This 84-nucleotide RNA from Paraburkholderia dinghuensis belongs to the Rfam family "Burkholderia sRNA 25". Gene Ontology term of the family: bacterial biofilm matrix. Rfam's curators write: Identified by RNA-seq, RACE and Northern blot. It scores 91 bits against the family's covariance model. Lineage of the source: Bacteria > Pseudomonadati > Betaproteobacteria > Burkholderiales > Paraburkholderia.
RNA sequence: ACUGCUUUCCGAAGCAGCCUUUUUCGUUGACGAAAAAGAUCUCCAAACCUUUGUUAGCGCGGCCGCAAGCUGCGCUUUUUUUUG
Number, nucleotide and partner (000 for none) at each position: 001a000002c017003u016004g015005c014006u013007u012008u000009c000010c000011g000012a007013a006014g005015c004016a003017g002018c000019c038020u037021u036022u035023u034024u033025c032026g031027u000028u000029g000030a000031c026032g025033a024034a023035a022036a021037a020038g019039a000040u000041c000042u000043c000044c000045a000046a000047a000048c000049c000050u000051u000052u000053g000054u000055u000056a076057g075058c074059g073060c072061g071062g070063c069064c000065g000066c000067a000068a000069g063070c062071u061072g060073c059074g058075c057076u056077u000078u000079u000080u000081u000082u000083u000084g000